Shown here is an 81-nucleotide sequence from Litomosoides sigmodontis, a member of the family "mir-5360 microRNA precursor family". It scores 95 bits against the family's covariance model. Pairs were carried over by alignment from the consensus structure, which was predicted with RNAalifold.

RNA sequence: UGACCAAAGAACGAAUCGUCGAAUCGGAUUUUUGUGUUAAUUAGCUGGAGAAAUUCGAAUCGACAUUCGAACUAUGGUCAU
Numbered sequence: 001u002g003a004c005c006a007a008a009g010a011a012c013g014a015a016u017c018g019u020c021g022a023a024u025c026g027g028a029u030u031u032u033u034g035u036g037u038u039a040a041u042u043a044g045c046u047g048g049a050g051a052a053a054u055u056c057g058a059a060u061c062g063a064c065a066u067u068c069g070a071a072c073u074a075u076g077g078u079c080a081u
Stems, first nucleotide, its partner, number of pairs: 002079005008073002012069005018064005024058006031051003